[Rfam]
RNA sequence: UGCCGCUCGGCAAAAAUUAACCGAAAAAGAGGCAUGGGUUAGUAGCAAGUCGAAAACUCGUGAGGUUUAGUAAGAG
Numbered sequence: 001u002g003c004c005g006c007u008c009g010g011c012a013a014a015a016a017u018u019a020a021c022c023g024a025a026a027a028a029g030a031g032g033c034a035u036g037g038g039u040u041a042g043u044a045g046c047a048a049g050u051c052g053a054a055a056a057c058u059c060g061u062g063a064g065g066u067u068u069a070g071u072a073a074g075a076g
Base pairs, nucleotide, nucleotide: 001012002011003010004009019067020066021065022064033062034061035060036059037058038057039056045051
Shown here is a 76-nucleotide RNA sequence, a member of the family "RT-18 RNA".
The base pairs follow the family's consensus structure, which is taken from published work.
The sequence is in the family's curated seed alignment.